[Rfam]
RNA sequence: UGAUGACGUUCUCCGGAAUCGCUGAGCUCCACUGAUGAGAGCGCACCUGAACCCUUUUCCAUCUGACCGCUGAGCGCGGUCGUG
Numbered sequence: 001u002g003a004u005g006a007c008g009u010u011c012u013c014c015g016g017a018a019u020c021g022c023u024g025a026g027c028u029c030c031a032c033u034g035a036u037g038a039g040a041g042c043g044c045a046c047c048u049g050a051a052c053c054c055u056u057u058u059c060c061a062u063c064u065g066a067c068c069g070c071u072g073a074g075c076g077c078g079g080u081c082g083u084g
Base pairs, nucleotide, nucleotide: 003083004082005081006080
Dot-bracket structure: ..((((.........................................................................)))).

Small nucleolar RNA MBII-202: an 84-nucleotide RNA sequence from Sciurus vulgaris. The organism belongs to Sciurus, within Eukaryota.